[Rfam]
RNA: Manganese Mn2+ riboswitch aptamer (yybP-ykoY)
Organism: Paraburkholderia sp. BL10I2N1
RNA sequence: CGCCCGGUCACUGGGGAGUAGCCUUCCUCCUGCCCCGGAGGAGAACGCGUCAACACACCUGGCCUGGCGCCAUGGCGCAUUCGACCGAACGGUUUGGCGAGACCACUGGCGCACAGCUUCGUCCGGGUCGGACGGGAAGCGGCGCGUCAUGGUUCGUAUUCGUCCGACCCCGGAGACU
Numbered sequence: 001c002g003c004c005c006g007g008u009c010a011c012u013g014g015g016g017a018g019u020a021g022c023c024u025u026c027c028u029c030c031u032g033c034c035c036c037g038g039a040g041g042a043g044a045a046c047g048c049g050u051c052a053a054c055a056c057a058c059c060u061g062g063c064c065u066g067g068c069g070c071c072a073u074g075g076c077g078c079a080u081u082c083g084a085c086c087g088a089a090c091g092g093u094u095u096g097g098c099g100a101g102a103c104c105a106c107u108g109g110c111g112c113a114c115a116g117c118u119u120c121g122u123c124c125g126g127g128u129c130g131g132a133c134g135g136g137a138a139g140c141g142g143c144g145c146g147u148c149a150u151g152g153u154u155c156g157u158a159u160u161c162g163u164c165c166g167a168c169c170c171c172g173g174a175g176a177c178u
Base pairs, nucleotide, nucleotide: 026041027040028039043082044081045080047078048077049076050075051074052073060072061071062070063069083177085175086172087171